[Rfam]
RNA: Small nucleolar RNA SNORD97
RNA sequence: UUGCCCAAUGAUUAUAGCAAGACGCGUUAUUAUGAGGACUAAUGCUGGAACUCUUUCUCCUCCUCUUACUUCUCCUUCUUUGUCCCUUCUUUCACCUUCUGUUUUCCCUUUCCUUAGGGUAUCCAGCGUCCUAUGAGCAAGACUGAGAUAUGAGGGCAA
Numbered sequence: 001u002u003g004c005c006c007a008a009u010g011a012u013u014a015u016a017g018c019a020a021g022a023c024g025c026g027u028u029a030u031u032a033u034g035a036g037g038a039c040u041a042a043u044g045c046u047g048g049a050a051c052u053c054u055u056u057c058u059c060c061u062c063c064u065c066u067u068a069c070u071u072c073u074c075c076u077u078c079u080u081u082g083u084c085c086c087u088u089c090u091u092u093c094a095c096c097u098u099c100u101g102u103u104u105u106c107c108c109u110u111u112c113c114u115u116a117g118g119g120u121a122u123c124c125a126g127c128g129u130c131c132u133a134u135g136a137g138c139a140a141g142a143c144u145g146a147g148a149u150a151u152g153a154g155g156g157c158a159a
Base pairs, nucleotide, nucleotide: 001159002158003157004156005155006154035054036053037052040049